The family of this 53-nucleotide RNA sequence from Nordella sp. HKS 07 is "serC leader".
This family is a putative regulatory RNA structure that is found upstream of the serC-serA operon in some alpha-proteobacteria. The final stem of the structure overlaps the ribosome binding site of the serC reading frame.
A reference for the family is Corbino et al. (2005), "Evidence for a second class of S-adenosylmethionine riboswitches and other regulatory RNA motifs in alpha-proteobacteria", Genome Biol.
NCBI's taxonomy places the organism under Bacteria, Pseudomonadati, Pseudomonadota, Hyphomicrobiales, Nordella.
Its family is annotated with regulation of gene expression in the Gene Ontology.
RNA sequence: CGCCGGGACACCUCUCCCCACCGAGAGGCGGACCAUCUGUAAGGAUGGAGCAG
Numbered sequence: 001c002g003c004c005g006g007g008a009c010a011c012c013u014c015u016c017c018c019c020a021c022c023g024a025g026a027g028g029c030g031g032a033c034c035a036u037c038u039g040u041a042a043g044g045a046u047g048g049a050g051c052a053g
Stems, first nucleotide, its partner, number of pairs: 011028006033048006